[Rfam]
RNA sequence: CCUCCCGAAGUGUCUCGCAGGACAGCCUCGGCGGAGGCCGCCUGCGGGGUAGAGCACCGAUGGGGUGGUAAGGGCUCGAAAGGGCCCACCAUCCUUUCGAACUCCGAAUCCGCAGGCGCCGGAGAAGCCGGGAGUGGGGUGUGCGGGGUAAGCUCGCACGCCGAGAGGGGAACAACCCAGACCGCGGGUUAAGGCCCCCAAGUGCCCGCUAAGUGACAAACCAAAGGGCGUCUCCCUCCUAAGACAGCGGGGAGGUGGGAACAGAAGCUGCCAUCCUCUAAGGAGUGCGUAACAGCUCACCCGCCGAGGAGGGGGGCCCCGAAAAUUGACGGGUCUAAGCGGGCCGCCGAAACCCGGGUUCACCCAGUCUUGGGCUGGGUGGAGGUAGGGAGGCGUGGCGGUUGGGUGGAAGCAGGGCCGUGAGGUCCUGUGGACCGACCGCCAAUGUAGAU
Numbered sequence: 001c002c003u004c005c006c007g008a009a010g011u012g013u014c015u016c017g018c019a020g021g022a023c024a025g026c027c028u029c030g031g032c033g034g035a036g037g038c039c040g041c042c043u044g045c046g047g048g049g050u051a052g053a054g055c056a057c058c059g060a061u062g063g064g065g066u067g068g069u070a071a072g073g074g075c076u077c078g079a080a081a082g083g084g085c086c087c088a089c090c091a092u093c094c095u096u097u098c099g100a101a102c103u104c105c106g107a108a109u110c111c112g113c114a115g116g117c118g119c120c121g122g123a124g125a126a127g128c129c130g131g132g133a134g135u136g137g138g139g140u141g142u143g144c145g146g147g148g149u150a151a152g153c154u155c156g157c158a159c160g161c162c163g164a165g166a167g168g169g170g171a172a173c174a175a176c177c178c179a180g181a182c183c184g185c186g187g188g189u190u191a192a193g194g195c196c197c198c199c200a201a202g203u204g205c206c207c208g209c210u211a212a213g214u215g216a217c218a219a220a221c222c223a224a225a226g227g228g229c230g231u232c233u234c235c236c237u238c239c240u241a242a243g244a245c246a247g248c249g250g251g252g253a254g255g256u257g258g259g260a261a262c263a264g265a266a267g268c269u270g271c272c273a274u275c276c277u278c279u280a281a282g283g284a285g286u287g288c289g290u291a292a293c294a295g296c297u298c299a300c301c302c303g304c305c306g307a308g309g310a311g312g313g314g315g316g317c318c319c320c321g322a323a324a325a326u327u328g329a330c331g332g333g334u335c336u337a338a339g340c341g342g343g344c345c346g347c348c349g350a351a352a353c354c355c356g357g358g359u360u361c362a363c364c365c366a367g368u369c370u371u372g373g374g375c376u377g378g379g380u381g382g383a384g385g386u387a388g389g390g391a392g393g394c395g396u397g398g399c400g401g402u403u404g405g406g407u408g409g410a411a412g413c414a415g416g417g418c419c420g421u422g423a424g425g426u427c428c429u430g431u432g433g434a435c436c437g438a439c440c441g442c443c444a445a446u447g448u449a450g451a452u
Base pairs, nucleotide, nucleotide: 001393002392003391004390005389006388011024012023013022014021015020026134027132028131029130030129031128032127036120037119038118040117041116042115043114044113045112046111047110052105053103054102059098060097062095063094064093065092066091067090068089072087073086074085075084076083077082138162139161140160141159142158143157144156145155146154167178168177169176182358183357185356186355187354188353189352193348194347195346202345204344205343206342207341208340209339226320227319228318230317231316232315233314234313235312236311237310238309239308247304248303249302250301251300253277254276255275258272259271278282283298287296288295359383360382361381362380363379364378365377366376367375394447396444397443398442399441400440401439402438403437404436405435412431413430414429415428416427417426418425419424